[Rfam]
RNA sequence: UGAGUGAAGUAGGUAGUUUCGUGUUGUUGGGCCUGGCUUUCUGAACACAACAACACCAAACCACCUGAUUCACUGC
Numbered sequence: 001u002g003a004g005u006g007a008a009g010u011a012g013g014u015a016g017u018u019u020c021g022u023g024u025u026g027u028u029g030g031g032c033c034u035g036g037c038u039u040u041c042u043g044a045a046c047a048c049a050a051c052a053a054c055a056c057c058a059a060a061c062c063a064c065c066u067g068a069u070u071c072a073c074u075g076c
Stems, first nucleotide, its partner, number of pairs: 003074006010067005016061004022055008031046001
RNA: mir-196 microRNA precursor family
Organism: Rattus norvegicus